[Rfam]
RNA: Small nucleolar RNA Z247
Organism: Aegilops tauschii
RNA sequence: CCCAUCCAGGAUGAUGAACUGAUCUCCUACCUGCUGCACGGGCUGGACAUGGACUACCAGCCCCUUGUCUCUGCCCUCGACGCCCGCAUCAUGCCGGUCUCUCUCGAUGAGCUGUACGCCAUGUUGAGCAACUUUGAUC
Numbered sequence: 001c002c003c004a005u006c007c008a009g010g011a012u013g014a015u016g017a018a019c020u021g022a023u024c025u026c027c028u029a030c031c032u033g034c035u036g037c038a039c040g041g042g043c044u045g046g047a048c049a050u051g052g053a054c055u056a057c058c059a060g061c062c063c064c065u066u067g068u069c070u071c072u073g074c075c076c077u078c079g080a081c082g083c084c085c086g087c088a089u090c091a092u093g094c095c096g097g098u099c100u101c102u103c104u105c106g107a108u109g110a111g112c113u114g115u116a117c118g119c120c121a122u123g124u125u126g127a128g129c130a131a132c133u134u135u136g137a138u139c
Stems, first nucleotide, its partner, number of pairs: 004138003008134001088108003093103001